A member of the RNA family "Alphaproteobacterial ar14" from Pseudaminobacter soli, 112 nucleotides long. The pairing is the family consensus, mapped onto this sequence. The match comes from Rfam's covariance-model search (61 bits). By type it is a small RNA.
RNA sequence: AGCAAUCCGCGGGGCGGUUCCUCCUCCCUCUGCCUCGCGGGAUAGCGGCCAGCACCUCCUCCCGCUGGCCCUAGAUUGGAAAAGGCCGGCCCCCUUCCGCCGGCCUUUUCUU
Dot-bracket structure: ......(((.(((((((............))))))).)))......((((((............))))))........(((((((((((..........)))))))))))..
Numbered sequence: 001a002g003c004a005a006u007c008c009g010c011g012g013g014g015c016g017g018u019u020c021c022u023c024c025u026c027c028c029u030c031u032g033c034c035u036c037g038c039g040g041g042a043u044a045g046c047g048g049c050c051a052g053c054a055c056c057u058c059c060u061c062c063c064g065c066u067g068g069c070c071c072u073a074g075a076u077u078g079g080a081a082a083a084g085g086c087c088g089g090c091c092c093c094c095u096u097c098c099g100c101c102g103g104c105c106u107u108u109u110c111u112u
Stems, first nucleotide, its partner, number of pairs: 007040003011036007047070006079110011
Lineage of the source: Bacteria > Pseudomonadati > Alphaproteobacteria > Hyphomicrobiales > Pseudaminobacter. Its family is annotated with biological process involved in symbiotic interaction in the Gene Ontology.